[Rfam]
RNA sequence: GUGCAUCUAGAAGGAAUUGAAUCUGUGAAUUCGCCAAUUAUGAGUUGGGUGCUUUAACCAAUCAGCAAUAGAUGC
Numbered sequence: 001g002u003g004c005a006u007c008u009a010g011a012a013g014g015a016a017u018u019g020a021a022u023c024u025g026u027g028a029a030u031u032c033g034c035c036a037a038u039u040a041u042g043a044g045u046u047g048g049g050u051g052c053u054u055u056a057a058c059c060a061a062u063c064a065g066c067a068a069u070a071g072a073u074g075c
Stems, first nucleotide, its partner, number of pairs: 003075006010026001012024003040069002044066005050060002

Rfam assigns this 75-nucleotide RNA from Capsicum baccatum to the family "Plastid-ycf2 5UTR RNA". By type it is a cis-regulatory element. The base pairs follow the family's consensus structure, which was predicted with LocARNA. Rfam describes the family as follows. Plastid ycf2 is a non-coding RNA (ncRNA) recognised in plastids. It was found in the prime untranslated region (5UTR) of ycf2 genes, it presents a tRNA-like motif which suggests it can be involved in mRNA maturation, particularly involved in defining the precise 5' end of the transcript. For this family Rfam cites "Retrograde signaling in plants: A critical review focusing on the GUN pathway and beyond" (Richter et al., Plant Commun, 2023). Rfam 15.1 lists 3,521 matches to the family in 417 species. Taxonomically the source falls in Capsicum (Eukaryota, Tracheophyta, eudicotyledons, lamiids).